[Rfam]
RNA: mir-3473 microRNA precursor family
Organism: Jaculus jaculus
RNA sequence: ACCGCUAAGCCAUCUCUCCAGCCCUUGUUUUAAAAAAACUAAAAUAAAAUGGGGCUGGAGAGAUGGCUUAGCGGU
Numbered sequence: 001a002c003c004g005c006u007a008a009g010c011c012a013u014c015u016c017u018c019c020a021g022c023c024c025u026u027g028u029u030u031u032a033a034a035a036a037a038a039c040u041a042a043a044a045u046a047a048a049a050u051g052g053g054g055c056u057g058g059a060g061a062g063a064u065g066g067c068u069u070a071g072c073g074g075u
Stems, first nucleotide, its partner, number of pairs: 002074023